Shown here is a 91-nucleotide RNA sequence, a member of the family "RNA anti-toxin A". It is annotated as an antitoxin RNA. Its family is annotated with mRNA binding and negative regulation of translation in the Gene Ontology. A search with the family's covariance model found it, with a score of 71 bits.
RNA sequence: UAAUAAAAAUGAAAAGAGAGAUAUGCGCUAACAUAGCUCUCUUAUGUAGAACCAUUUAAGACGGUAGCAUUGGUUAAUUAAUCAUUAGAAA
Number, nucleotide and partner (000 for none) at each position: 001u000002a000003a000004u000005a000006a000007a000008a000009a000010u000011g000012a000013a000014a000015a000016g000017a000018g000019a000020g000021a000022u035023a034024u033025g032026c000027g000028c000029u000030a000031a000032c025033a024034u023035a022036g000037c000038u000039c000040u000041c000042u000043u000044a000045u000046g000047u000048a000049g000050a000051a065052c064053c063054a000055u061056u060057u000058a000059a000060g056061a055062c000063g053064g052065u051066a000067g000068c000069a000070u000071u000072g000073g000074u000075u000076a000077a000078u000079u000080a000081a000082u000083c000084a000085u000086u000087a000088g000089a000090a000091a000